[Rfam]
RNA sequence: CUCUUAUCAAGAGCUGGCUGAGGGAUUUGGCCCUAUGAAGCCCAGCAACCGACCAUAAUACCGUUAUUAAACGGGGCGCAGAAUGCGCCGGAUGAUCAAUCCAGCAAGGCACGGUGCUAAUUCCAACAGAAAGAUAAUCUUUCUGGGAGAUAAGAG
Numbered sequence: 001c002u003c004u005u006a007u008c009a010a011g012a013g014c015u016g017g018c019u020g021a022g023g024g025a026u027u028u029g030g031c032c033c034u035a036u037g038a039a040g041c042c043c044a045g046c047a048a049c050c051g052a053c054c055a056u057a058a059u060a061c062c063g064u065u066a067u068u069a070a071a072c073g074g075g076g077c078g079c080a081g082a083a084u085g086c087g088c089c090g091g092a093u094g095a096u097c098a099a100u101c102c103a104g105c106a107a108g109g110c111a112c113g114g115u116g117c118u119a120a121u122u123c124c125a126a127c128a129g130a131a132a133g134a135u136a137a138u139c140u141u142u143c144u145g146g147g148a149g150a151u152a153a154g155a156g
Stems, first nucleotide, its partner, number of pairs: 001156008013043001016042003022033003027126004044118004049114002051110001053108001122148001127145006

Background: This 156-nucleotide RNA sequence from Rossellomorea vietnamensis belongs to the Rfam family "SAM riboswitch aptamer (S box leader)". NCBI's taxonomy places the organism under Bacteria, Bacillota, Caryophanales, Bacillaceae, Rossellomorea. The family's consensus secondary structure is taken from published work. Clan: SAM clan.